[Rfam]
RNA: TPP riboswitch aptamer (THI element)
RNA sequence: CACACAUCGCUCGGGGGCCCGUGGACGCGGGCUGAGAGGGCAGGACGACCUGCCGACCGACUGAACCUGUCCGGUUAACACCGACGUAGGGAGCACUUCAUAUGACUAU
Numbered sequence: 001c002a003c004a005c006a007u008c009g010c011u012c013g014g015g016g017g018c019c020c021g022u023g024g025a026c027g028c029g030g031g032c033u034g035a036g037a038g039g040g041c042a043g044g045a046c047g048a049c050c051u052g053c054c055g056a057c058c059g060a061c062u063g064a065a066c067c068u069g070u071c072c073g074g075u076u077a078a079c080a081c082c083g084a085c086g087u088a089g090g091g092a093g094c095a096c097u098u099c100a101u102a103u104g105a106c107u108a109u
Stems, first nucleotide, its partner, number of pairs: 006097001009094002011060004017032005039054005066090004072083003